[Rfam]
RNA: 7SK RNA
RNA sequence: GGAUGUGAAGGCGACCUGGCUGCGACAUCUGUCACCCCACUGAUCACCAGGGUUGAUUCAGCUGAUCUGGCUGGCUAGGCAGGUGUCCCCUUCCUCCCUCAACACUGCAUGUGUGUCCCUCCCAAAGCUGCACGCUCGGUCAAAGAGGACGACCUCCCCGAUAGAGACGGUACUGUUCACCGGCCAAGGGUACACGGUAGCUGUGCUCCCCUGCUAGAACCUCCCAACAACCUCAAGGUCCAUGUGUAGGAGAACGCAGGGUAGUCAAGCUUCCAAGACUGCAGAUUUUUUUAUUUUUUUUUUUCUGGAGGUUUUU
Numbered sequence: 001g002g003a004u005g006u007g008a009a010g011g012c013g014a015c016c017u018g019g020c021u022g023c024g025a026c027a028u029c030u031g032u033c034a035c036c037c038c039a040c041u042g043a044u045c046a047c048c049a050g051g052g053u054u055g056a057u058u059c060a061g062c063u064g065a066u067c068u069g070g071c072u073g074g075c076u077a078g079g080c081a082g083g084u085g086u087c088c089c090c091u092u093c094c095u096c097c098c099u100c101a102a103c104a105c106u107g108c109a110u111g112u113g114u115g116u117c118c119c120u121c122c123c124a125a126a127g128c129u130g131c132a133c134g135c136u137c138g139g140u141c142a143a144a145g146a147g148g149a150c151g152a153c154c155u156c157c158c159c160g161a162u163a164g165a166g167a168c169g170g171u172a173c174u175g176u177u178c179a180c181c182g183g184c185c186a187a188g189g190g191u192a193c194a195c196g197g198u199a200g201c202u203g204u205g206c207u208c209c210c211c212u213g214c215u216a217g218a219a220c221c222u223c224c225c226a227a228c229a230a231c232c233u234c235a236a237g238g239u240c241c242a243u244g245u246g247u248a249g250g251a252g253a254a255c256g257c258a259g260g261g262u263a264g265u266c267a268a269g270c271u272u273c274c275a276a277g278a279c280u281g282c283a284g285a286u287u288u289u290u291u292u293a294u295u296u297u298u299u300u301u302u303u304u305c306u307g308g309a310g311g312u313u314u315u316u
Stems, first nucleotide, its partner, number of pairs: 001108001003106001006101003010097002013093002018090002024087010035074002037070003042067004047061001116170002119166003122139002125136001127135002140161002147157003200270003206264002209261006221252004227247003299310003